A member of the RNA family "Group II catalytic intron D1-D4-1" from Azoarcus taiwanensis, 79 nucleotides long. Pairs were carried over by alignment from the consensus structure.
RNA sequence: GCGCACAAAGGGCGACGGUGGUGAGCCGGACCGAGAACUCAGCAGAGGCCGUAGUAGCAGCCUGUUUGGGGCGAAGGGC
Numbered sequence: 001g002c003g004c005a006c007a008a009a010g011g012g013c014g015a016c017g018g019u020g021g022u023g024a025g026c027c028g029g030a031c032c033g034a035g036a037a038c039u040c041a042g043c044a045g046a047g048g049c050c051g052u053a054g055u056a057g058c059a060g061c062c063u064g065u066u067u068g069g070g071g072c073g074a075a076g077g078g079c
Base pairs, nucleotide, nucleotide: 001026002025004023005022006021008019011016038047039046040045048079049078050077057072058071061068
Lineage of the source: Bacteria > Pseudomonadati > Rhodocyclales > Zoogloeaceae > Azoarcus. Rfam's curators write: Group II introns are found in rRNA, tRNA and mRNA of organelles in fungi, plants and protists, and also in mRNA in bacteria.